[Rfam]
RNA sequence: UUUUCAUCAAGAGUUGGCUGAGGGAUAGGCCCAAUGAAGCCGCGGCAACCAUUCGUGUCUGAACGAAACGGUGCCAAUUCCUGCAGGAUGGAUUCCUGGCAGAUGAAGA
Numbered sequence: 001u002u003u004u005c006a007u008c009a010a011g012a013g014u015u016g017g018c019u020g021a022g023g024g025a026u027a028g029g030c031c032c033a034a035u036g037a038a039g040c041c042g043c044g045g046c047a048a049c050c051a052u053u054c055g056u057g058u059c060u061g062a063a064c065g066a067a068a069c070g071g072u073g074c075c076a077a078u079u080c081c082u083g084c085a086g087g088a089u090g091g092a093u094u095c096c097u098g099g100c101a102g103a104u105g106a107a108g109a
Base pairs, nucleotide, nucleotide: 001109002108003107004106005105006104007103008102013043015042016041017040018039022032023031024030026083027082028081029080044075045074046073047072049071050070052067053066054065055064079101084098085097086096087095088094
Dot-bracket structure: ((((((((....(.((((...(((.[[[[)))......)))))((((.((.((((........))))..))))))...(]]]](((((.....)))))..)))))))))

A member of the RNA family "SAM riboswitch aptamer (S box leader)" from Allolucifera butyrica, 109 nucleotides long. A search with the family's covariance model found it, with a score of 89 bits.